[Rfam]
RNA sequence: GCAUCGGAAUCUUUCCUGGUCCUUGCUGUGAGGUGCAGGCCCAGGGACACAGGAUGCUAAAGAAACGCUGAGCAAAUCCAGGCAGGUUUUAUGUUCCUCUAUGCAAGACUUGUCUCUACGCCUCUGCAACAUGA
Numbered sequence: 001g002c003a004u005c006g007g008a009a010u011c012u013u014u015c016c017u018g019g020u021c022c023u024u025g026c027u028g029u030g031a032g033g034u035g036c037a038g039g040c041c042c043a044g045g046g047a048c049a050c051a052g053g054a055u056g057c058u059a060a061a062g063a064a065a066c067g068c069u070g071a072g073c074a075a076a077u078c079c080a081g082g083c084a085g086g087u088u089u090u091a092u093g094u095u096c097c098u099c100u101a102u103g104c105a106a107g108a109c110u111u112g113u114c115u116c117u118a119c120g121c122c123u124c125u126g127c128a129a130c131a132u133g134a
Stems, first nucleotide, its partner, number of pairs: 001057005013047007021039002067127002070124003080115008094106002
Rfam assigns this 134-nucleotide RNA sequence from Pogona vitticeps to the family "Small nucleolar RNA SNORA55".
Rfam's curators write: ACA55 is a member of the H/ACA class of snoRNA that guide the sites of modification of uridines to pseudouridines.
Gene Ontology terms of the family: nucleolus and RNA processing.
Rfam 15.1 lists 1,476 matches to the family in 616 species.
Rfam classes the family as an H/ACA-box small nucleolar RNA.
The organism belongs to Pogona, within Eukaryota.